The record is a 56-nucleotide sequence from Decaisnea insignis, which matches "Plastid-psbA-3 3UTR RNA" in Rfam. About the family: Plastid psbA-3 is a non-coding RNA (ncRNA) present in plastids. The organism belongs to Decaisnea, within Eukaryota.
[Rfam]
RNA sequence: AAGGAGUAAUACCCAAUUUCUUGUUCUAUCAAGAGGAUGGGUAUUGUUCCUUCAUU
Numbered sequence: 001a002a003g004g005a006g007u008a009a010u011a012c013c014c015a016a017u018u019u020c021u022u023g024u025u026c027u028a029u030c031a032a033g034a035g036g037a038u039g040g041g042u043a044u045u046g047u048u049c050c051u052u053c054a055u056u
Base pairs, nucleotide, nucleotide: 001052002051003050004049005048006047007046008045009044010043011042012041013040018035019034020033021032022031023030
Rfam's curators put it in the seed alignment.